[Rfam]
Background: This 148-nucleotide RNA from Rhizobium giardinii belongs to the Rfam family "Rhizobiales sRNA Atu_C7". The family's RNA type in Rfam is small RNA.
RNA sequence: CUGUUCCGGAUUGAUGUUCGACCGGCUCGGCGCAUCGCGCAUGUGGCGUUCUCCUGGCGUGUCCUGAAGCAGCAGAUGUUCCCCUCCCUCAUCUGUUGCGAUGCGCCCUCCUAGCCCCGCUCGUCGAUUGCGACCAGUGGGGCUUUUU
Numbered sequence: 001c002u003g004u005u006c007c008g009g010a011u012u013g014a015u016g017u018u019c020g021a022c023c024g025g026c027u028c029g030g031c032g033c034a035u036c037g038c039g040c041a042u043g044u045g046g047c048g049u050u051c052u053c054c055u056g057g058c059g060u061g062u063c064c065u066g067a068a069g070c071a072g073c074a075g076a077u078g079u080u081c082c083c084c085u086c087c088c089u090c091a092u093c094u095g096u097u098g099c100g101a102u103g104c105g106c107c108c109u110c111c112u113a114g115c116c117c118c119g120c121u122c123g124u125c126g127a128u129u130g131c132g133a134c135c136a137g138u139g140g141g142g143c144u145u146u147u148u
Stems, first nucleotide, its partner, number of pairs: 056107008072096007114143008124133002